[Rfam]
RNA sequence: CCGUCCGCUCCCUGGGACGCCCCCUGCCCGCGCGGCGCGCUGCGGCUACGCUUGCGGCGUGCGCCCUCUGCAGGGAGGGCGUAAAGCCGACAGCCGUCGCACACCCGGGAGCACAUCCAUG
Numbered sequence: 001c002c003g004u005c006c007g008c009u010c011c012c013u014g015g016g017a018c019g020c021c022c023c024c025u026g027c028c029c030g031c032g033c034g035g036c037g038c039g040c041u042g043c044g045g046c047u048a049c050g051c052u053u054g055c056g057g058c059g060u061g062c063g064c065c066c067u068c069u070g071c072a073g074g075g076a077g078g079g080c081g082u083a084a085a086g087c088c089g090a091c092a093g094c095c096g097u098c099g100c101a102c103a104c105c106c107g108g109g110a111g112c113a114c115a116u117c118c119a120u121g
Stems, first nucleotide, its partner, number of pairs: 060083004065078004086100002089098003
RNA: Streptomyces-metH RNA